The record is an 86-nucleotide RNA sequence from Marivivens niveibacter, which matches "Rhodo-rpoB RNA" in Rfam. The match comes from Rfam's covariance-model search (61 bits). It is annotated as a cis-regulatory element.
RNA sequence: UGGUCGGGCGGCCCCCCUUGGGAAGGGGGUCAAGAAUAGACCGGAACUCCCUUCUCAAUGGGAAAAUGUCGCGGCCCCGGCGACAU
Numbered sequence: 001u002g003g004u005c006g007g008g009c010g011g012c013c014c015c016c017c018u019u020g021g022g023a024a025g026g027g028g029g030u031c032a033a034g035a036a037u038a039g040a041c042c043g044g045a046a047c048u049c050c051c052u053u054c055u056c057a058a059u060g061g062g063a064a065a066a067u068g069u070c071g072c073g074g075c076c077c078c079g080g081c082g083a084c085a086u
Base pairs, nucleotide, nucleotide: 001043002042003041004040005039010031011030012029013028014027015026016025067085068084069083070082071081